Source information: This 122-nucleotide sequence from Winslowiella iniecta belongs to the Rfam family "Histidine operon leader". A search with the family's covariance model found it, with a score of 121 bits. Its family is annotated with histidine biosynthetic process in the Gene Ontology. From the family's description: At least 6 amino acid operons are known to be regulated by attenuation. In each a leader sequence of 150-200 bp is found upstream of the first gene in the operon.
RNA sequence: CCAUCAUCACCAUCACCCUGACUAGUCUUUCAGGCGAUGAGUGCUGGAAGACAUUUAGAUCUUCCAGUGGCGCAGAACGCAUAGAGAGCCCCCGGAAGAUCAUCUUCCGGGGGCUUUUUUUU
Numbered sequence: 001c002c003a004u005c006a007u008c009a010c011c012a013u014c015a016c017c018c019u020g021a022c023u024a025g026u027c028u029u030u031c032a033g034g035c036g037a038u039g040a041g042u043g044c045u046g047g048a049a050g051a052c053a054u055u056u057a058g059a060u061c062u063u064c065c066a067g068u069g070g071c072g073c074a075g076a077a078c079g080c081a082u083a084g085a086g087a088g089c090c091c092c093c094g095g096a097a098g099a100u101c102a103u104c105u106u107c108c109g110g111g112g113g114c115u116u117u118u119u120u121u122u
Stems, first nucleotide, its partner, number of pairs: 008043003011039004017034005044067008083119016